[Rfam]
RNA sequence: UUAAUCAGGAUAAAUACAUCUCAUAUAUUUUGGGAAUAUGGCCCACUGUUUCUACCCGUUACCGUAAAUAACGGACUAUGAGAGAAGUAGCUAGCACC
Number, nucleotide and partner (000 for none) at each position: 001u000002u000003a000004a000005u000006c000007a000008g000009g000010a000011u000012a000013a000014a000015u000016a000017c000018a000019u083020c082021u081022c080023a079024u078025a077026u000027a000028u000029u000030u000031u045032g044033g043034g042035a000036a000037u000038a000039u000040g000041g000042c034043c033044c032045a031046c000047u000048g000049u000050u000051u000052c000053u000054a000055c000056c074057c073058g072059u071060u070061a069062c000063c000064g000065u000066a000067a000068a000069u061070a060071a059072c058073g057074g056075a000076c000077u025078a024079u023080g022081a021082g020083a019084g000085a000086a000087g000088u000089a000090g000091c000092u000093a000094g000095c000096a000097c000098c000
A member of the RNA family "Purine riboswitch aptamer" from Gracilibacillus halotolerans, 98 nucleotides long. The family's consensus secondary structure is taken from published work.